A member of the RNA family "Small Cajal body specific RNA 1" from Albula glossodonta, 170 nucleotides long. scaRNAs are a specific class of small nuclear RNAs which localise to the Cajal bodies and guide the modification of RNA polymerase II transcribed spliceosomal RNAs U1, U2, U4, U5 and U12. ACA35 belong to the H/ACA box class of guide RNAs as it has the predicted hairpin-hinge-hairpin-tail structure, conserved H/ACA-box motifs and is found associated with GAR1. The family's consensus secondary structure was predicted with RNAalifold. It is annotated as a small Cajal body RNA. Rfam links the family to the GO terms Cajal body, nucleolus and RNA processing. Rfam 15.1 lists 715 matches to the family in 617 species. The match comes from Rfam's covariance-model search (78 bits).

RNA sequence: CCGCACCUGAUACUGACCCUGCCGUUUCCCCAGCCUCUCAGCUCCUGUGAGCGGGGGGGGCUGGACCCCCAUGACUGUAGGGUCUCAUGUGGUGCCAUAGUAACAGCCGCCCUGAGAUUUAAGCUCCGAGUGUAAAGACACACUCUGUGUUAUGGCUCAGAGGCACAGCG
Dot-bracket structure: ..(((((.......((((.(((.((((..((((((.(((..............))).).)))))).......))).))).))))......))))).............(((................(.((((....)))).)((((.((....)).)))))))......
Numbered sequence: 001c002c003g004c005a006c007c008u009g010a011u012a013c014u015g016a017c018c019c020u021g022c023c024g025u026u027u028c029c030c031c032a033g034c035c036u037c038u039c040a041g042c043u044c045c046u047g048u049g050a051g052c053g054g055g056g057g058g059g060g061c062u063g064g065a066c067c068c069c070c071a072u073g074a075c076u077g078u079a080g081g082g083u084c085u086c087a088u089g090u091g092g093u094g095c096c097a098u099a100g101u102a103a104c105a106g107c108c109g110c111c112c113u114g115a116g117a118u119u120u121a122a123g124c125u126c127c128g129a130g131u132g133u134a135a136a137g138a139c140a141c142a143c144u145c146u147g148u149g150u151u152a153u154g155g156c157u158c159a160g161a162g163g164c165a166c167a168g169c170g
Stems, first nucleotide, its partner, number of pairs: 003095005015084004020079003024075003027065001030064005035058001037056003109164003128143001130141004144161004149156002